[Rfam]
RNA sequence: AGAUGAUAUGAUGAAUGAGAUUAAUUUCCCUAUUGGUUUGAUUGGCUGAUAUGAUGGCCUAAAAUACUGAACCGAGUCUGAUCAUUC
Numbered sequence: 001a002g003a004u005g006a007u008a009u010g011a012u013g014a015a016u017g018a019g020a021u022u023a024a025u026u027u028c029c030c031u032a033u034u035g036g037u038u039u040g041a042u043u044g045g046c047u048g049a050u051a052u053g054a055u056g057g058c059c060u061a062a063a064a065u066a067c068u069g070a071a072c073c074g075a076g077u078c079u080g081a082u083c084a085u086u087c
Base pairs, nucleotide, nucleotide: 002086003085004084005083044059045058046057047056
Small nucleolar RNA Z102/R77: an 87-nucleotide RNA sequence from Aegilops tauschii.
Its family is annotated with nucleolus and RNA processing in the Gene Ontology.
The family is grouped with related families in Rfam's "SNORD44 clan".
The family's consensus secondary structure was predicted with PFOLD.
A reference for the family is Chen et al. (2003), "The high diversity of snoRNAs in plants: identification and comparative study of 120 snoRNA genes from Oryza sativa", Nucleic Acids Res.